[Rfam]
RNA sequence: GGAUUCCCGCCGAGUAAGAACUAGCCAUUCGCUCGUAGCGAGUCUUGGAGGGCUAAUGGUAACUUUAGCCUUUAAGCUUAGAUAGUUAGGUGGCGGGACGAAAGCCAAAUGGUUGAAGGGAUUGAGCUCCAUAAUCGUUAGUAAAUCGGGAGGGCUGAUGCCUUACCUGCGUGCAGAAAGCAACAUUUUAUCCUUCGUCAAAGGCAAGAAGGGUAAAGCCUCCCUGGAGUCAGAGACCU
Numbered sequence: 001g002g003a004u005u006c007c008c009g010c011c012g013a014g015u016a017a018g019a020a021c022u023a024g025c026c027a028u029u030c031g032c033u034c035g036u037a038g039c040g041a042g043u044c045u046u047g048g049a050g051g052g053c054u055a056a057u058g059g060u061a062a063c064u065u066u067a068g069c070c071u072u073u074a075a076g077c078u079u080a081g082a083u084a085g086u087u088a089g090g091u092g093g094c095g096g097g098a099c100g101a102a103a104g105c106c107a108a109a110u111g112g113u114u115g116a117a118g119g120g121a122u123u124g125a126g127c128u129c130c131a132u133a134a135u136c137g138u139u140a141g142u143a144a145a146u147c148g149g150g151a152g153g154g155c156u157g158a159u160g161c162c163u164u165a166c167c168u169g170c171g172u173g174c175a176g177a178a179a180g181c182a183a184c185a186u187u188u189u190a191u192c193c194u195u196c197g198u199c200a201a202a203g204g205c206a207a208g209a210a211g212g213g214u215a216a217a218g219c220c221u222c223c224c225u226g227g228a229g230u231c232a233g234a235g236a237c238c239u
Stems, first nucleotide, its partner, number of pairs: 011035004018030003022207001024205002038086002042083004047077001048073009058063001123233001124231001126230006148224006154181003159175003186218011
RNA: Group II catalytic intron D1-D4-6
Organism: Bacillus sp. T33-2